Notes:
This 67-nucleotide RNA from Gallus gallus belongs to the Rfam family "mir-451 microRNA precursor family". NCBI's taxonomy places the organism under Eukaryota, Teleostomi, Amniota, Neognathae, Gallus. The base pairs follow the family's consensus structure, which was predicted with RNAalifold. Its family is annotated with RISC complex and miRNA-mediated post-transcriptional gene silencing in the Gene Ontology. Rfam 15.1 lists 658 matches to the family in 500 species. It is one of the family's seed sequences.

RNA sequence: ACAUGGCUGGCAGGGAAACCGUUACCAUUACUGAGUUUAGUAAUGGUAACGGUUCUGCUGACAGCCA
Number, nucleotide and partner (000 for none) at each position: 001a000002c000003a000004u000005g000006g000007c000008u063009g062010g000011c060012a059013g058014g000015g000016a000017a054018a053019c052020c051021g000022u049023u048024a047025c046026c045027a044028u043029u042030a041031c040032u039033g038034a000035g000036u000037u000038u033039a032040g031041u030042a029043a028044u027045g026046g025047u024048a023049a022050c000051g020052g019053u018054u017055c000056u000057g000058c013059u012060g011061a000062c009063a008064g000065c000066c000067a000